[Rfam]
RNA sequence: ACCACUGAGCCAUCUCACCAGCCCCUUCUUCUUUUUUUAAGAGCAGAAUAGGGGCUGGUGAGAUGGCUCAGUGGU
Numbered sequence: 001a002c003c004a005c006u007g008a009g010c011c012a013u014c015u016c017a018c019c020a021g022c023c024c025c026u027u028c029u030u031c032u033u034u035u036u037u038u039a040a041g042a043g044c045a046g047a048a049u050a051g052g053g054g055c056u057g058g059u060g061a062g063a064u065g066g067c068u069c070a071g072u073g074g075u
Base pairs, nucleotide, nucleotide: 002074003073004072005071006070007069008068009067010066011065012064013063014062015061016060017059018058019057020056021055022054023053024052
RNA: mir-3473 microRNA precursor family
Organism: Octodon degus